Shown here is a 156-nucleotide sequence from Vibrio genomosp. F10, a member of the family "DABA-DC-AT RNA". The source organism's lineage runs through Bacteria, Pseudomonadati, Pseudomonadota, Vibrio and Vibrio genomosp. F10. The family's RNA type in Rfam is cis-regulatory element.
[Rfam]
RNA sequence: GCAAUCUCGGAGCACUUAUUAAUGCAUUACUCUGGGGGAUACUCGUAACGUACAUUCGGCUGAUUGUCUCGUUGCGUAGGGUAGGUAUCAGCAAGCCCUUGUUGAUAGACGGGAUAUUUUUGUUGCAUUGGCAACAGAUGAGAGAGAAACCCAACA
Numbered sequence: 001g002c003a004a005u006c007u008c009g010g011a012g013c014a015c016u017u018a019u020u021a022a023u024g025c026a027u028u029a030c031u032c033u034g035g036g037g038g039a040u041a042c043u044c045g046u047a048a049c050g051u052a053c054a055u056u057c058g059g060c061u062g063a064u065u066g067u068c069u070c071g072u073u074g075c076g077u078a079g080g081g082u083a084g085g086u087a088u089c090a091g092c093a094a095g096c097c098c099u100u101g102u103u104g105a106u107a108g109a110c111g112g113g114a115u116a117u118u119u120u121u122g123u124u125g126c127a128u129u130g131g132c133a134a135c136a137g138a139u140g141a142g143a144g145a146g147a148a149a150c151c152c153a154a155c156a
Stems, first nucleotide, its partner, number of pairs: 006036006044076007052067003086107009121136006

Overview: The family's consensus secondary structure is taken from published work.